[Rfam]
RNA sequence: AAGUCGGCAAAAUAGAUCCGUAACUUCGGGAAAAGGAUUGGCUCUAAGGGUCAGGUGCGUUGGGCCUUGGGGGGACGUCUCCGGAGCAGUGGGGCUCUAGCUGGGCAACCAGCCGGCGCCCCGCAGCAUCGGGGUUCAGACGCCCUUGGCAGGCUUCGGCCGUCCGGCGUACAAGUAAUGACCAACUUAGAACUGGUACGGACAAG
Numbered sequence: 001a002a003g004u005c006g007g008c009a010a011a012a013u014a015g016a017u018c019c020g021u022a023a024c025u026u027c028g029g030g031a032a033a034a035g036g037a038u039u040g041g042c043u044c045u046a047a048g049g050g051u052c053a054g055g056u057g058c059g060u061u062g063g064g065c066c067u068u069g070g071g072g073g074g075a076c077g078u079c080u081c082c083g084g085a086g087c088a089g090u091g092g093g094g095c096u097c098u099a100g101c102u103g104g105g106c107a108a109c110c111a112g113c114c115g116g117c118g119c120c121c122c123g124c125a126g127c128a129u130c131g132g133g134g135u136u137c138a139g140a141c142g143c144c145c146u147u148g149g150c151a152g153g154c155u156u157c158g159g160c161c162g163u164c165c166g167g168c169g170u171a172c173a174a175g176u177a178a179u180g181a182c183c184a185a186c187u188u189a190g191a192a193c194u195g196g197u198a199c200g201g202a203c204a205a206g
Base pairs, nucleotide, nucleotide: 015039016038017037018036019035024029040194041193043191044190045189046188047187048186049183050182051181052180053179055172056171057170058169059168060167061166062165063164064150065149066148069145070144071143077136079134080133081132082131083130084129086127087126089124090123091122092121093120094119095118097116098115100113101112102111103110104109195199
RNA: Eukaryotic large subunit ribosomal RNA, nucleotides 2281 to 2486
Organism: Ramalina farinacea